[Rfam]
RNA: Small nucleolar RNA Z247
Organism: Panicum virgatum
RNA sequence: CAUCUUGACAAUGAAGAUCUUGGCUCAUACAUCCUUGCGGGACUUGACGCCGACUACAAUCUUGUGGUGUCGGCAAUUUAGGCCAGAACAGAUGCAAUCUCCCUUGGUGAGAUGUUCACUCACUUGUCUUCCUUUGAAC
Numbered sequence: 001c002a003u004c005u006u007g008a009c010a011a012u013g014a015a016g017a018u019c020u021u022g023g024c025u026c027a028u029a030c031a032u033c034c035u036u037g038c039g040g041g042a043c044u045u046g047a048c049g050c051c052g053a054c055u056a057c058a059a060u061c062u063u064g065u066g067g068u069g070u071c072g073g074c075a076a077u078u079u080a081g082g083c084c085a086g087a088a089c090a091g092a093u094g095c096a097a098u099c100u101c102c103c104u105u106g107g108u109g110a111g112a113u114g115u116u117c118a119c120u121c122a123c124u125u126g127u128c129u130u131c132c133u134u135u136g137a138a139c
Base pairs, nucleotide, nucleotide: 005137006136007135008134088108089107091105092104